mraW RNA: a 104-nucleotide sequence from Microcella daejeonensis. It is annotated as a cis-regulatory element.
RNA sequence: UUCUGAUCGCGAGGCAUCGGACUCCCAGCCGUGAUCCGCCCUGGCGCACCUUCCCCGGUGCCAGGUCGCACGGAUGGGGAUCCGGGCCCCGCGCUCCGACUCAC
Numbered sequence: 001u002u003c004u005g006a007u008c009g010c011g012a013g014g015c016a017u018c019g020g021a022c023u024c025c026c027a028g029c030c031g032u033g034a035u036c037c038g039c040c041c042u043g044g045c046g047c048a049c050c051u052u053c054c055c056c057g058g059u060g061c062c063a064g065g066u067c068g069c070a071c072g073g074a075u076g077g078g079g080a081u082c083c084g085g086g087c088c089c090c091g092c093g094c095u096c097c098g099a100c101u102c103a104c
Stems, first nucleotide, its partner, number of pairs: 009092003013088003020082002023079005029073004037068002040065008